Notes: This 356-nucleotide sequence from Lysinibacillus sphaericus belongs to the Rfam family "transfer-messenger RNA". A search with the family's covariance model found it, with a score of 178 bits. A reference for the family is Mao et al. (2010), "Variations on the tmRNA gene", RNA Biol.

[Rfam]
RNA sequence: GGGGACGUUACGGAUUCGACAGGGAUGGUUCAAGCUUUGGUCGCGCGUCGGAGGUCUCGGCUCCGUCAUCAACGGAAGUUAUAUAAUAACUGGCAAACAACAAAACUUAGCUUUCGCAGCGUAAGCUCGUAAGCGCUCUGCCUCUCUAUCGCCCAUGUAGAGUACGUAGGGCCCAACUUUAGUGGGAUACGGUCGAUGGUGCCACCUGAGUCACCGGCAAGAGAUUUCCAGGUUAGCGUACAGGACGCCUGUUUGUCGGCAUAAUGCUACGCGAAACGCAAAUGGACAAACUACACGCGUAGAAGCUGAAGUAUUGGAGUCUUUGGACGCGGGUUCGACUCCCGCCGUCUCCAUUU
Numbered sequence: 001g002g003g004g005a006c007g008u009u010a011c012g013g014a015u016u017c018g019a020c021a022g023g024g025a026u027g028g029u030u031c032a033a034g035c036u037u038u039g040g041u042c043g044c045g046c047g048u049c050g051g052a053g054g055u056c057u058c059g060g061c062u063c064c065g066u067c068a069u070c071a072a073c074g075g076a077a078g079u080u081a082u083a084u085a086a087u088a089a090c091u092g093g094c095a096a097a098c099a100a101c102a103a104a105a106c107u108u109a110g111c112u113u114u115c116g117c118a119g120c121g122u123a124a125g126c127u128c129g130u131a132a133g134c135g136c137u138c139u140g141c142c143u144c145u146c147u148a149u150c151g152c153c154c155a156u157g158u159a160g161a162g163u164a165c166g167u168a169g170g171g172c173c174c175a176a177c178u179u180u181a182g183u184g185g186g187a188u189a190c191g192g193u194c195g196a197u198g199g200u201g202c203c204a205c206c207u208g209a210g211u212c213a214c215c216g217g218c219a220a221g222a223g224a225u226u227u228c229c230a231g232g233u234u235a236g237c238g239u240a241c242a243g244g245a246c247g248c249c250u251g252u253u254u255g256u257c258g259g260c261a262u263a264a265u266g267c268u269a270c271g272c273g274a275a276a277c278g279c280a281a282a283u284g285g286a287c288a289a290a291c292u293a294c295a296c297g298c299g300u301a302g303a304a305g306c307u308g309a310a311g312u313a314u315u316g317g318a319g320u321c322u323u324u325g326g327a328c329g330c331g332g333g334u335u336c337g338a339c340u341c342c343c344g345c346c347g348u349c350u351c352c353a354u355u356u
Stems, first nucleotide, its partner, number of pairs: 001352007020325007029316001032314001034312008044299005049065005055076003112132002115129002118127003135172006144162006152186005192218004197213004204234001206232002236272005247260003251291004256284001329345005